[Rfam]
RNA sequence: GGCACGCUUUCUGCUCAAGGCUCUGCAACGGUAACCAACGGCGGCUACCGAUUCCCGACAAAGGCGUCGC
Numbered sequence: 001g002g003c004a005c006g007c008u009u010u011c012u013g014c015u016c017a018a019g020g021c022u023c024u025g026c027a028a029c030g031g032u033a034a035c036c037a038a039c040g041g042c043g044g045c046u047a048c049c050g051a052u053u054c055c056c057g058a059c060a061a062a063g064g065c066g067u068c069g070c
Base pairs, nucleotide, nucleotide: 030049031048032047033046035044036043
A member of the RNA family "narK RNA" from Stutzerimonas stutzeri, 70 nucleotides long.
Pairs were carried over by alignment from the consensus structure, which is taken from published work.